The family of this 72-nucleotide sequence from Dromaius novaehollandiae is "tRNA".
The source organism's lineage runs through Eukaryota, Sauria, Archosauria, Casuariiformes and Dromaius.
A search with the family's covariance model found it, with a score of 64 bits.
RNA sequence: GGGGAUGUAGCUCAGUGGAAGAGCACCUGCUUUGCAUGCAGGAGGCCCUGGGUUCAAUCCCUAGCACCUCCA
Dot-bracket structure: ((((.((..((((.......)))).(((((.......))))).....(((((.......))))))).)))).